[Rfam]
RNA: ZMP/ZTP riboswitch aptamer (pfl RNA motif)
RNA sequence: UCCCUGGGCCGUGACUGGCGCGCUGGGAUGGGACCGACCAUCGGGGAGCGGCCCGCGCGAGCGAGUGCCGUGCGCCUGGGCCGAACCG
Numbered sequence: 001u002c003c004c005u006g007g008g009c010c011g012u013g014a015c016u017g018g019c020g021c022g023c024u025g026g027g028a029u030g031g032g033a034c035c036g037a038c039c040a041u042c043g044g045g046g047a048g049c050g051g052c053c054c055g056c057g058c059g060a061g062c063g064a065g066u067g068c069c070g071u072g073c074g075c076c077u078g079g080g081c082c083g084a085a086c087c088g
Base pairs, nucleotide, nucleotide: 003057005055006054007053008052009051010050011049012048015045016044017076018075019074020073021072028041029040030039031038067081068080069079